Description
Rfam assigns this 117-nucleotide RNA sequence from Ruegeria lacuscaerulensis to the family "ALIL pseudoknot". Rfam's curators put it in the seed alignment.
[Rfam]
RNA sequence: CGCAUAUUUUGCCCAGGCGGAGCUCGACCGCCGGUCCAGGACAUGAUCGCCUUCAUCGAAGAGAACCGUGAAGCCAUCGGGGUCGAGCCGAUCUGCAGGCACCUGCCGAUUGCCCCA
Numbered sequence: 001c002g003c004a005u006a007u008u009u010u011g012c013c014c015a016g017g018c019g020g021a022g023c024u025c026g027a028c029c030g031c032c033g034g035u036c037c038a039g040g041a042c043a044u045g046a047u048c049g050c051c052u053u054c055a056u057c058g059a060a061g062a063g064a065a066c067c068g069u070g071a072a073g074c075c076a077u078c079g080g081g082g083u084c085g086a087g088c089c090g091a092u093c094u095g096c097a098g099g100c101a102c103c104u105g106c107c108g109a110u111u112g113c114c115c116c117a
Stems, first nucleotide, its partner, number of pairs: 016032005079116004089112002092109002095106004